[Rfam]
RNA: SAM (S-adenosyl methionine) riboswitch aptamer
RNA sequence: GUUCACGAGUUGCAGCUGUCGGUACCUGGCCGGCUGCACGGCAACCCUCUCCAUCGAGCGGGGUGCCCCAGGGGAAGAACCGGCUCGUCGCGACCGCGGCGGGCAAGUCGAUGGG
Numbered sequence: 001g002u003u004c005a006c007g008a009g010u011u012g013c014a015g016c017u018g019u020c021g022g023u024a025c026c027u028g029g030c031c032g033g034c035u036g037c038a039c040g041g042c043a044a045c046c047c048u049c050u051c052c053a054u055c056g057a058g059c060g061g062g063g064u065g066c067c068c069c070a071g072g073g074g075a076a077g078a079a080c081c082g083g084c085u086c087g088u089c090g091c092g093a094c095c096g097c098g099g100c101g102g103g104c105a106a107g108u109c110g111a112u113g114g115g
Base pairs, nucleotide, nucleotide: 001080002079003078004077009039011038012037013036014035015034016033021031022030040067041066042065045063046062047061049058050057083104084103085102086101087100088099089098090097091096